The family of this 60-nucleotide sequence from Rarobacter faecitabidus is "msiK RNA".
RNA sequence: AGUCGUCAUCCAUUCACAACGGAUCGUCCGGCACGUACCUGCCGGUGAAGGGAAAUCAUC
Numbered sequence: 001a002g003u004c005g006u007c008a009u010c011c012a013u014u015c016a017c018a019a020c021g022g023a024u025c026g027u028c029c030g031g032c033a034c035g036u037a038c039c040u041g042c043c044g045g046u047g048a049a050g051g052g053a054a055a056u057c058a059u060c
Stems, first nucleotide, its partner, number of pairs: 010052002013049004028045006
Rfam classes the family as a cis-regulatory element.